[Rfam]
RNA sequence: CUAUAAAUAAAAAAAUUAACUCGUAUAUUUUCAAGAAUACGGCUUGAAAGUUUCUACCAGGCUACCUUAAAUAGCUUGACUACGAGUUUAAUGUCUAUAGUA
Numbered sequence: 001c002u003a004u005a006a007a008u009a010a011a012a013a014a015a016u017u018a019a020c021u022c023g024u025a026u027a028u029u030u031u032c033a034a035g036a037a038u039a040c041g042g043c044u045u046g047a048a049a050g051u052u053u054c055u056a057c058c059a060g061g062c063u064a065c066c067u068u069a070a071a072u073a074g075c076u077u078g079a080c081u082a083c084g085a086g087u088u089u090a091a092u093g094u095c096u097a098u099a100g101u102a
Stems, first nucleotide, its partner, number of pairs: 018088008029049007058078007
Shown here is a 102-nucleotide RNA sequence from Desulforamulus reducens, a member of the family "Purine riboswitch aptamer". Riboswitches are metabolite binding domains within certain messenger RNAs that serve as precision sensors for their corresponding targets.